This 56-nucleotide RNA from Steroidobacter denitrificans belongs to the Rfam family "nhaA-I RNA". About the family: Acidobacteria, Alphaproteobacteria, Betaproteobacteria and Gammaproteobacteria, Verrucomicrobia, cand. division NC10. The family's RNA type in Rfam is riboswitch. A search with the family's covariance model found it, with a score of 43 bits.
[Rfam]
RNA sequence: AGGUGUUAGCUGCAUAUCGCAGCGGAACAGGUUCAUGCGCUGGUCGGGCCGCCACG
Numbered sequence: 001a002g003g004u005g006u007u008a009g010c011u012g013c014a015u016a017u018c019g020c021a022g023c024g025g026a027a028c029a030g031g032u033u034c035a036u037g038c039g040c041u042g043g044u045c046g047g048g049c050c051g052c053c054a055c056g
Stems, first nucleotide, its partner, number of pairs: 005028003009023003038056002041054004